[Rfam]
Description
The record is a 244-nucleotide RNA sequence from Aureobasidium pullulans, which matches "Small nucleolar RNA snR191" in Rfam.
RNA sequence: UGCCAGCGUUAAGUCAAGGCUCCUUCCGCAUCUCGUGUGCUUUUUCUCCCCAUGGAAGGAGACUGUUACAACUCUGGCAGAUCGAACUCGGCCCGCCGCUAGACCCCGUUAUGGACGUCUAGUAGAUCGCUUGCCGUUUUGGCUUGCUUUCAAAAGGGUUCGAACGUGUUUCGUUUGAGUUGAGUACCUCUCCCGCUCCAACGAGUGGCUCAUGGAGGCUCUCUUAGUUAUGAUUCACACAUCU
Numbered sequence: 001u002g003c004c005a006g007c008g009u010u011a012a013g014u015c016a017a018g019g020c021u022c023c024u025u026c027c028g029c030a031u032c033u034c035g036u037g038u039g040c041u042u043u044u045u046c047u048c049c050c051c052a053u054g055g056a057a058g059g060a061g062a063c064u065g066u067u068a069c070a071a072c073u074c075u076g077g078c079a080g081a082u083c084g085a086a087c088u089c090g091g092c093c094c095g096c097c098g099c100u101a102g103a104c105c106c107c108g109u110u111a112u113g114g115a116c117g118u119c120u121a122g123u124a125g126a127u128c129g130c131u132u133g134c135c136g137u138u139u140u141g142g143c144u145u146g147c148u149u150u151c152a153a154a155a156g157g158g159u160u161c162g163a164a165c166g167u168g169u170u171u172c173g174u175u176u177g178a179g180u181u182g183a184g185u186a187c188c189u190c191u192c193c194c195g196c197u198c199c200a201a202c203g204a205g206u207g208g209c210u211c212a213u214g215g216a217g218g219c220u221c222u223c224u225u226a227g228u229u230a231u232g233a234u235u236c237a238c239a240c241a242u243c244u
Base pairs, nucleotide, nucleotide: 003077004076005075006074017064018063020061021060022059023058024057025056026055028043030041032039088163089162090161091160093158098123099122100121101120102119103118104117106114107113130146133143134142135141136140166238167237168236171233172232173231174230182223183222184221187218188217189216190215193208194207195206196205197204198203
Description: It scores 50 bits against the family's covariance model. Its family is annotated with RNA processing and nucleolus in the Gene Ontology.